[Rfam]
RNA sequence: AGCUGUUAAAAACUCCGAGUCCGACUCACCUAAGUCGCCACAACCGCGCCGAUAGGGUGGCCGGACCGCUCGAACCGGAAUCCACGGUUCGUAAGGGUGCCGAGAGAAAUGUCGUCGCCUCCCGUUUUGGAAAGGUGUUUAUGUUGGAAUUAC
Numbered sequence: 001a002g003c004u005g006u007u008a009a010a011a012a013c014u015c016c017g018a019g020u021c022c023g024a025c026u027c028a029c030c031u032a033a034g035u036c037g038c039c040a041c042a043a044c045c046g047c048g049c050c051g052a053u054a055g056g057g058u059g060g061c062c063g064g065a066c067c068g069c070u071c072g073a074a075c076c077g078g079a080a081u082c083c084a085c086g087g088u089u090c091g092u093a094a095g096g097g098u099g100c101c102g103a104g105a106g107a108a109a110u111g112u113c114g115u116c117g118c119c120u121c122c123c124g125u126u127u128u129g130g131a132a133a134g135g136u137g138u139u140u141a142u143g144u145u146g147g148a149a150u151u152a153c
Stems, first nucleotide, its partner, number of pairs: 003147002011139003015135002019066005025060002028058003034053004071091007095120005101114003105110001121130002
RNA: Molybdenum/Tungsten riboswitch aptamer (Moco RNA motif)